RNA sequence: CGGCGGGACACCUCUCCCCAACGAGAGGCUUUCUAUCUGGAAGGAUAGGCCGC
Numbered sequence: 001c002g003g004c005g006g007g008a009c010a011c012c013u014c015u016c017c018c019c020a021a022c023g024a025g026a027g028g029c030u031u032u033c034u035a036u037c038u039g040g041a042a043g044g045a046u047a048g049g050c051c052g053c
Stems, first nucleotide, its partner, number of pairs: 011028006033048006

The family of this 53-nucleotide RNA is "serC leader".
Gene Ontology term of the family: regulation of gene expression.
About the family: This family is a putative regulatory RNA structure that is found upstream of the serC-serA operon in some alpha-proteobacteria. The final stem of the structure overlaps the ribosome binding site of the serC reading frame.
Rfam's curators put it in the seed alignment.
By type it is a cis-regulatory leader.